[Rfam]
RNA sequence: GAGAGAGAAGGUGGCAAGAUGUUGGCAUAGCUGUUGAGUUUAGGUUCCUGCUAUGCCUCCAUAUUGCCAUCUUUUUCUGCC
Numbered sequence: 001g002a003g004a005g006a007g008a009a010g011g012u013g014g015c016a017a018g019a020u021g022u023u024g025g026c027a028u029a030g031c032u033g034u035u036g037a038g039u040u041u042a043g044g045u046u047c048c049u050g051c052u053a054u055g056c057c058u059c060c061a062u063a064u065u066g067c068c069a070u071c072u073u074u075u076u077c078u079g080c081c
Base pairs, nucleotide, nucleotide: 005076006075007074008073009072010071011070012069013068014067015066016065017064019062020061021060024057025056026055027054028053029052030051031050
Overview
mir-31 microRNA precursor family: an 81-nucleotide RNA from Albula glossodonta. Rfam links the family to the GO terms RISC complex and gene silencing by miRNA. A reference for the family is Chiang et al. (2010), "Mammalian microRNAs: experimental evaluation of novel and previously annotated genes", Genes Dev. The match comes from Rfam's covariance-model search (73 bits). The base pairs follow the family's consensus structure, which was predicted with RNAalifold. The family is grouped with related families in Rfam's "mir-31 microRNA precursor family".